Rfam assigns this 267-nucleotide RNA from Urocitellus parryii to the family "Small Cajal body specific RNA 6".
RNA sequence: UUUCAUUGAAUACUUUGAGAAGUAUUGGUGUUAAUUCUUCUUUGAAGGUCUUUUCCCCCUGCUGCCUCAAUCCCAUCAGGCUCCAGUGGUGCUGAGAUGGGCCAGAGAGCAGCUGACAUGCAGGGAUAGCUUGAGUCUUUGUUCCUGGGUAAUCCAAGAAGGGGAGCCAAGGUGGUUGCAUGCAAUGGCUUAGCCAUGAACUGCAUGGCCUGAUGGUUGGAAGAGCCAGUAUCUGUGGCUGUGAACUGACAUUUUCAAGCUGAGACC
Dot-bracket structure: (..(...........................((.(((..((((.((........((..(.(((((......((((((..((.........).)..)))))).......))))).).......(..((.((.......((.((((((...............)))))).)).......)))).).......................))........)).))))...................))).))...............))..
The family has 17 seed sequences and 1,309 matches in Rfam 15.1. The family's RNA type in Rfam is small Cajal body RNA. U88 is small Cajal body specific RNA (scaRNA). scaRNAs are a novel class of small nuclear RNAs which localise to the Cajal bodies. U88 is found associated with both fibrillarin and Gar1p and co-localises with coilin in Cajal bodies. The source organism's lineage runs through Eukaryota, Vertebrata, Euteleostomi, Rodentia and Urocitellus. On this family, see Darzacq et al., EMBO J 2002: "Cajal body-specific small nuclear RNAs: a novel class of 2'-O-methylation and pseudouridylation guide RNAs". A search with the family's covariance model found it, with a score of 81 bits.